[Rfam]
RNA sequence: GGGCGGUGAUGAGAAUUCAGAGAAGUCAUGCACCACUCUGACGAUGUUCGUGUGAUGAUAAUUUCUCAUACCCAUAAAAUUUCUGAGCCC
Numbered sequence: 001g002g003g004c005g006g007u008g009a010u011g012a013g014a015a016u017u018c019a020g021a022g023a024a025g026u027c028a029u030g031c032a033c034c035a036c037u038c039u040g041a042c043g044a045u046g047u048u049c050g051u052g053u054g055a056u057g058a059u060a061a062u063u064u065c066u067c068a069u070a071c072c073c074a075u076a077a078a079a080u081u082u083c084u085g086a087g088c089c090c
Stems, first nucleotide, its partner, number of pairs: 001090004

About this RNA:
The family of this 90-nucleotide sequence from Sesamum indicum is "Small nucleolar RNA Z221/R21b". The family's consensus secondary structure was predicted with WAR. The match comes from Rfam's covariance-model search (66 bits). Gene Ontology terms of the family: nucleolus and RNA processing. The family has 12 seed sequences and 588 matches in Rfam 15.1.